[Rfam]
RNA sequence: GAGACCCUGAGAUGUACGUUUUAUCCUUUACGUUUUGAGCCAACACCUUUUUAACGGGAGUUCGGGUCAUCUGUCUGGAGUUGAAGCCAUUCUUGGAAUCGCGGACAGCAGAUGUAGGACACCCACCUGCUUGAGAGCAGGUUCAAAACGAAGGAGUCCACGGCAUUCCCGGGGGCUCU
Numbered sequence: 001g002a003g004a005c006c007c008u009g010a011g012a013u014g015u016a017c018g019u020u021u022u023a024u025c026c027u028u029u030a031c032g033u034u035u036u037g038a039g040c041c042a043a044c045a046c047c048u049u050u051u052u053a054a055c056g057g058g059a060g061u062u063c064g065g066g067u068c069a070u071c072u073g074u075c076u077g078g079a080g081u082u083g084a085a086g087c088c089a090u091u092c093u094u095g096g097a098a099u100c101g102c103g104g105a106c107a108g109c110a111g112a113u114g115u116a117g118g119a120c121a122c123c124c125a126c127c128u129g130c131u132u133g134a135g136a137g138c139a140g141g142u143u144c145a146a147a148a149c150g151a152a153g154g155a156g157u158c159c160a161c162g163g164c165a166u167u168c169c170c171g172g173g174g175g176c177u178c179u
Stems, first nucleotide, its partner, number of pairs: 002177002005174005011168001012166004017162003031150004036145006056124003060120004065115001067114001069113005075108002082101002087096002

This 179-nucleotide sequence from Seinonella peptonophila belongs to the Rfam family "6S / SsrS RNA". The base pairs follow the family's consensus structure, which is taken from published work. Taxonomically the source falls in Seinonella (Bacteria, Bacillati, Bacilli, Thermoactinomycetaceae). The literature on the family includes a 2000 paper in Cell by Wassarman and Storz, "6S RNA regulates E. coli RNA polymerase activity".